[Rfam]
RNA sequence: AUGGCGGCAGGCGAUGGAGUCCGCCUGCCGCCAUUGAGCGAACCGCUUCACGAGAAGCUGAUGACCCCUGUCUCGCG
Numbered sequence: 001a002u003g004g005c006g007g008c009a010g011g012c013g014a015u016g017g018a019g020u021c022c023g024c025c026u027g028c029c030g031c032c033a034u035u036g037a038g039c040g041a042a043c044c045g046c047u048u049c050a051c052g053a054g055a056a057g058c059u060g061a062u063g064a065c066c067c068c069u070g071u072c073u074c075g076c077g
Stems, first nucleotide, its partner, number of pairs: 010025004016068002019065003045058004
About this RNA: The family of this 77-nucleotide RNA from Acetobacter nitrogenifigens is "Fluoride riboswitch aptamer (crcB RNA motif)". The literature on the family includes a 2017 paper in Nat Chem Biol by Zhao et al., "An excited state underlies gene regulation of a transcriptional riboswitch".